Small Cajal body specific RNA 24: a 132-nucleotide RNA sequence from Vombatus ursinus.
Lineage of the source: Eukaryota > Metazoa > Eumetazoa > Craniata > Vombatus.
Gene Ontology terms of the family: nucleolus, RNA processing and Cajal body.
scaRNAs are a specific class of small nuclear RNAs which localise to the Cajal bodies and guide the modification of RNA polymerase II transcribed spliceosomal RNAs U1, U2, U4, U5 and U12. ACA12 belongs to the H/ACA box class of guide RNAs as it has the predicted hairpin-hinge-hairpin-tail structure,the conserved H/ACA-box motifs and is found associated with GAR1.
A reference for the family is Darzacq et al. (2002), "Cajal body-specific small nuclear RNAs: a novel class of 2'-O-methylation and pseudouridylation guide RNAs", EMBO J.
RNA sequence: UGGACGUUGGUUUUAUUUCAGUUUCUCCUUCAUGAGGAGAUAACUAAACCCAAGUGUCCUAUAUAAACACAGAAAUUAUCUGUUCACUCUUGGAAAGUAAACAAGAGUUGGAUCGUUCCACUUCUGACAAAU
Numbered sequence: 001u002g003g004a005c006g007u008u009g010g011u012u013u014u015a016u017u018u019c020a021g022u023u024u025c026u027c028c029u030u031c032a033u034g035a036g037g038a039g040a041u042a043a044c045u046a047a048a049c050c051c052a053a054g055u056g057u058c059c060u061a062u063a064u065a066a067a068c069a070c071a072g073a074a075a076u077u078a079u080c081u082g083u084u085c086a087c088u089c090u091u092g093g094a095a096a097g098u099a100a101a102c103a104a105g106a107g108u109u110g111g112a113u114c115g116u117u118c119c120a121c122u123u124c125u126g127a128c129a130a131a132u
Stems, first nucleotide, its partner, number of pairs: 002059007010051001020045004024040005070126005089105004